[Rfam]
RNA sequence: AAGAUCAUACUCCACAGGAUCAUUUCUGUAGUAGAUCUUACUCCGUUCUAAACCAAAGAACGAGUUAAUGCAGCCACGAUGAGGAGGGGCGGCAUUUUUCCCUGAGCGUGAGGAAGACUCGGGAGAUUGACUUUGGUUUCAGUCUCUCAGUCAUCGAUGAUCGUUCAGUCCUUGCACUUAGUGCAGGGAUGAUGGGAAAGGUGCGUUCUGAGUGGU
Dot-bracket structure: (((((..((((...(((((....))))).)))).))))).....(((((.......)))))...........(((((..............(((((((((((...(((.......((((..((..(((((........)))))))...)))).........)))..(..(((((((.....))))))).)...))))))))))).......)))))
Notes
This 216-nucleotide RNA sequence from Frieseomelitta varia belongs to the Rfam family "Small nucleolar RNA U3". A reference for the family is Speckmann et al. (1999), "Nuclear retention elements of U3 small nucleolar RNA", Mol Cell Biol. Pairs were carried over by alignment from the consensus structure, which is taken from published work. About the family: Small nucleolar RNAs (snoRNAs) are involved in the processing and modification of rRNA in the nucleolus. Gene Ontology terms of the family: nucleolus and RNA processing. It is annotated as a C/D-box small nucleolar RNA. Clan: U3 clan.